[Rfam]
RNA sequence: GCGGGCUUGGAAUUAAGAUGCUGUGGGCCCGCAUCAGCGCGUCUAAGCUGGUGAUCACGGGGAUCUUUGCACGCCAGCAAGUAUAGCCGCGUCACUCUAAAGUAGGCCGCCGGGGGGUAGCUCGCCAUUGCUCCGGUGCUCCGAAUUUUAUGUGAGUUGACGCGCCGCGCGCUUCAAAGGGGUGGCCGUUGUGGUGACGGCCAGAAAGCGCGGACGCCG
Dot-bracket structure: (((((((..................)))))))..............((((((.............[[[[...)))))).........((((((((((........................................................)))).))))))...((((((.]]]]....(((((((.......)))))))...)))))).......
The family of this 219-nucleotide RNA is "PAGEV RNA". It is annotated as a small RNA.